Annotation: This 81-nucleotide RNA sequence belongs to the Rfam family "PhotoRC-II RNA". It is one of the family's seed sequences.

[Rfam]
RNA sequence: ACACGCCUCACCGAGACUAAACAGCGUGUUUAAAAAAUAGUCUCUAAUACCUCAGGCGGAGGGUGUCUGAGGAAUAUUCUA
Numbered sequence: 001a002c003a004c005g006c007c008u009c010a011c012c013g014a015g016a017c018u019a020a021a022c023a024g025c026g027u028g029u030u031u032a033a034a035a036a037a038u039a040g041u042c043u044c045u046a047a048u049a050c051c052u053c054a055g056g057c058g059g060a061g062g063g064u065g066u067c068u069g070a071g072g073a074a075u076a077u078u079c080u081a
Base pairs, nucleotide, nucleotide: 002028003027004026005025006024008023013044014043015042016041017040050072051071052070053069054068055067056066